The family of this 72-nucleotide RNA sequence from Gongylonema pulchrum is "SmY spliceosomal RNA". It is annotated as a spliceosomal small nuclear RNA. Taxonomically the source falls in Gongylonema (Eukaryota, Eumetazoa, Bilateria, Rhabditida).

[Rfam]
RNA sequence: UAUGACAUUGGUGUAGCCGCAGGGCCUCCUUCGAGACCCGAAGAAAAAUUUUUGGAAGUCCAUAACGGACUG
Numbered sequence: 001u002a003u004g005a006c007a008u009u010g011g012u013g014u015a016g017c018c019g020c021a022g023g024g025c026c027u028c029c030u031u032c033g034a035g036a037c038c039c040g041a042a043g044a045a046a047a048a049u050u051u052u053u054g055g056a057a058g059u060c061c062a063u064a065a066c067g068g069a070c071u072g
Base pairs, nucleotide, nucleotide: 022039023038024037026035027034028033057071058070059069060068061067